[Rfam]
RNA sequence: CAUGCGAGUAGAAGCGGUCGGGAACUGAUCCUGGACAUUGCUCGACGG
Numbered sequence: 001c002a003u004g005c006g007a008g009u010a011g012a013a014g015c016g017g018u019c020g021g022g023a024a025c026u027g028a029u030c031c032u033g034g035a036c037a038u039u040g041c042u043c044g045a046c047g048g
Stems, first nucleotide, its partner, number of pairs: 005044006015033001018035002021031003
RNA: Xanthine riboswitch aptamer (NMT1 RNA)